The family of this 84-nucleotide RNA from Papaver somniferum is "Small nucleolar RNA Z102/R77". Gene Ontology terms of the family: RNA processing and nucleolus. Clan: SNORD44 clan. It scores 76 bits against the family's covariance model. The family has 9 seed sequences and 1,346 matches in Rfam 15.1. Taxonomically the source falls in Papaver (Eukaryota, Streptophyta, Magnoliopsida, Papaveroideae).
RNA sequence: AUAUGAGGUGAUGAUUAAGUAAUUUCCCUAUUGGUUUGAUUGCCGAAAUGAUGGCAUAAAUGUAUUAGCUCUGGCUGAUCAUUC
Numbered sequence: 001a002u003a004u005g006a007g008g009u010g011a012u013g014a015u016u017a018a019g020u021a022a023u024u025u026c027c028c029u030a031u032u033g034g035u036u037u038g039a040u041u042g043c044c045g046a047a048a049u050g051a052u053g054g055c056a057u058a059a060a061u062g063u064a065u066u067a068g069c070u071c072u073g074g075c076u077g078a079u080c081a082u083u084c
Stems, first nucleotide, its partner, number of pairs: 003082003041056004